[Rfam]
RNA sequence: GUGUGUAUGUAUGUAUGUACAGAGCUCCCUAACUUACAUAGGCCUCUGUUAAGGGGGUGAUGGCUAGUCAUGGUGUCUGGAUGCUG
Numbered sequence: 001g002u003g004u005g006u007a008u009g010u011a012u013g014u015a016u017g018u019a020c021a022g023a024g025c026u027c028c029c030u031a032a033c034u035u036a037c038a039u040a041g042g043c044c045u046c047u048g049u050u051a052a053g054g055g056g057g058u059g060a061u062g063g064c065u066a067g068u069c070a071u072g073g074u075g076u077c078u079g080g081a082u083g084c085u086g
Stems, first nucleotide, its partner, number of pairs: 003084004011076002020072002024068003027063002030060001032058004039053001041050003